[Rfam]
RNA: mir-4875 microRNA precursor family
Organism: Branchiostoma floridae
RNA sequence: GCGUUGCUAUAGGACUUUCUAUUUUGUGCUGUAUUCUGAGGAGCACAAAAUAAAAAGCCCGAUAACAACGCAU
Number, nucleotide and partner (000 for none) at each position: 001g071002c070003g069004u068005u067006g066007c000008u064009a063010u062011a000012g060013g059014a000015c000016u056017u055018u054019c000020u052021a051022u050023u049024u048025u047026g046027u045028g000029c000030u042031g000032u040033a000034u000035u000036c000037u000038g000039a000040g032041g000042a030043g000044c000045a027046c026047a025048a024049a023050a022051u021052a020053a000054a018055a017056a016057g000058c000059c013060c012061g000062a010063u009064a008065a000066c006067a005068a004069c003070g002071c001072a000073u000